About this RNA
This 47-nucleotide RNA sequence from Novipirellula maiorica belongs to the Rfam family "Acido-Lenti-1 RNA". Taxonomically the source falls in Novipirellula maiorica (Bacteria, Pseudomonadati, Pirellulales, Pirellulaceae).

RNA sequence: CCCGCGGCUCACGCCGUGGGCUACAUCCUGACGUCCCUAUCGGGACU
Numbered sequence: 001c002c003c004g005c006g007g008c009u010c011a012c013g014c015c016g017u018g019g020g021c022u023a024c025a026u027c028c029u030g031a032c033g034u035c036c037c038u039a040u041c042g043g044g045a046c047u
Stems, first nucleotide, its partner, number of pairs: 001020008033046005
The match comes from Rfam's covariance-model search (44 bits). The family has 87 seed sequences and 2,607 matches in Rfam 15.1.